[Rfam]
RNA sequence: UUUCGCGUCGGUGUAGCGGGUCGGGUCGUCUCCGAACUCGGCGAGCACCCGGGCGGCGAGGACCGGUCCCAGUCCUGGCUGG
Numbered sequence: 001u002u003u004c005g006c007g008u009c010g011g012u013g014u015a016g017c018g019g020g021u022c023g024g025g026u027c028g029u030c031u032c033c034g035a036a037c038u039c040g041g042c043g044a045g046c047a048c049c050c051g052g053g054c055g056g057c058g059a060g061g062a063c064c065g066g067u068c069c070c071a072g073u074c075c076u077g078g079c080u081g082g
Stems, first nucleotide, its partner, number of pairs: 008044003012040002018038002021035005055079001057077001059076005
Actinobacteria sRNA Ms_AS-4: an 82-nucleotide RNA from Pseudofrankia asymbiotica. For this family Rfam cites "Identification of small RNAs in Mycobacterium smegmatis using heterologous Hfq" (Li et al., RNA, 2013). It is annotated as a small RNA. The family has 9 seed sequences and 207 matches in Rfam 15.1.